Rfam assigns this 93-nucleotide sequence from Clostridium cylindrosporum to the family "Selenocysteine transfer RNA".
NCBI's taxonomy places the organism under Bacteria, Bacillati, Bacillota, Eubacteriales, Clostridium cylindrosporum.
[Rfam]
RNA sequence: GGGAGUGGAUAGGUGCUGGUGUGUCUACCGGUCUUCAAAACCGGCUUGUGGCGUUAGUAGCGUCAUGGGUGAGUUCGAUUCUCACACAUUCCC
Numbered sequence: 001g002g003g004a005g006u007g008g009a010u011a012g013g014u015g016c017u018g019g020u021g022u023g024u025c026u027a028c029c030g031g032u033c034u035u036c037a038a039a040a041c042c043g044g045c046u047u048g049u050g051g052c053g054u055u056a057g058u059a060g061c062g063u064c065a066u067g068g069g070u071g072a073g074u075u076c077g078a079u080u081c082u083c084a085c086a087c088a089u090u091c092c093c
Base pairs, nucleotide, nucleotide: 001093002092003091004090005089006088007087008085011026012025013024014023015022016021028044029043030042031041032040047067048066049065050064051063070084071083072082073081
The base pairs follow the family's consensus structure, which is taken from published work.